[Rfam]
MIR2118 microRNA precursor family: a 163-nucleotide RNA sequence from Miscanthus lutarioriparius. It scores 126 bits against the family's covariance model. Rfam 15.1 lists 2,377 matches to the family in 45 species. NCBI's taxonomy places the organism under Eukaryota, Viridiplantae, Magnoliopsida, Poales, Miscanthus. Rfam links the family to the GO terms RISC complex and miRNA-mediated post-transcriptional gene silencing. Pairs were carried over by alignment from the consensus structure, which was predicted with RNAalifold.
RNA sequence: GUUGGGAAGAUGAAGAAAAAGAGCAUCUAAGAGCGUUGGGCAUGACAACAUGGAGGAAAGAAUGAACUAUGAACACCCUCUAGAAUAAGGGUCAAGUUCUUUUUCUUUCCCAAUGCCUCCCAUGCCUAUUGUUCUUAGGUGUUCCUUCCUCUUCCUAGGAACU
Numbered sequence: 001g002u003u004g005g006g007a008a009g010a011u012g013a014a015g016a017a018a019a020a021g022a023g024c025a026u027c028u029a030a031g032a033g034c035g036u037u038g039g040g041c042a043u044g045a046c047a048a049c050a051u052g053g054a055g056g057a058a059a060g061a062a063u064g065a066a067c068u069a070u071g072a073a074c075a076c077c078c079u080c081u082a083g084a085a086u087a088a089g090g091g092u093c094a095a096g097u098u099c100u101u102u103u104u105c106u107u108u109c110c111c112a113a114u115g116c117c118u119c120c121c122a123u124g125c126c127u128a129u130u131g132u133u134c135u136u137a138g139g140u141g142u143u144c145c146u147u148c149c150u151c152u153u154c155c156u157a158g159g160a161a162c163u
Stems, first nucleotide, its partner, number of pairs: 009154002012151002015148003021144003026139010037128008047118001049115003053111001055110007